[Rfam]
RNA sequence: CAUCUAAAUAGAGGUGCGCAACGGAUGAGUAUUUCUUUUUUGAGCAACGGGGAAAAGGAAAAGAAAGAAAGGCCAAUGCGCCGAAGCUUAUGCUGUUUCCCCAGGCAGCCUAGGCUGGGGUUAUCGUGAAUAACGGUUGCCCUGUCAUGAAAGUUUUGCUUUCGUGGAGCGCUAUUUAUGAA
Numbered sequence: 001c002a003u004c005u006a007a008a009u010a011g012a013g014g015u016g017c018g019c020a021a022c023g024g025a026u027g028a029g030u031a032u033u034u035c036u037u038u039u040u041u042g043a044g045c046a047a048c049g050g051g052g053a054a055a056a057g058g059a060a061a062a063g064a065a066a067g068a069a070a071g072g073c074c075a076a077u078g079c080g081c082c083g084a085a086g087c088u089u090a091u092g093c094u095g096u097u098u099c100c101c102c103a104g105g106c107a108g109c110c111u112a113g114g115c116u117g118g119g120g121u122u123a124u125c126g127u128g129a130a131u132a133a134c135g136g137u138u139g140c141c142c143u144g145u146c147a148u149g150a151a152a153g154u155u156u157u158g159c160u161u162u163c164g165u166g167g168a169g170c171g172c173u174a175u176u177u178a179u180g181a182a
Stems, first nucleotide, its partner, number of pairs: 006177006016081005023074002032066008085116006092109005117143005123137005145167007
The family of this 182-nucleotide RNA sequence from Brevibacillus fulvus is "Lysine riboswitch aptamer". The base pairs follow the family's consensus structure, which is taken from published work.